[Rfam]
RNA sequence: UGAGUGUUAUGAUGAUGGAGUCGCUUGACUCUUAGUCUAGCUCUGGUCUAGCACCAGGAUUUUCCUGGUGC
Numbered sequence: 001u002g003a004g005u006g007u008u009a010u011g012a013u014g015a016u017g018g019a020g021u022c023g024c025u026u027g028a029c030u031c032u033u034a035g036u037c038u039a040g041c042u043c044u045g046g047u048c049u050a051g052c053a054c055c056a057g058g059a060u061u062u063u064c065c066u067g068g069u070g071c
Base pairs, nucleotide, nucleotide: 002043003042004041005040011037012036013035017032018031019030020029021028022027051071052070053069054068055067056066057065058064059063